RNA sequence: CCUGGCAAUGACGACACCCUUGCCCUCGCUGAGAACAGCGUUCGCUGGUGAGAGCAGUUCCAUGCGCUCAGCGGAGCCGAGCCGGA
Dot-bracket structure: .(((((..........................................................................))))).
The record is an 86-nucleotide RNA sequence from Eurypyga helias, which matches "Small nucleolar RNA SNORD103/SNORD85" in Rfam.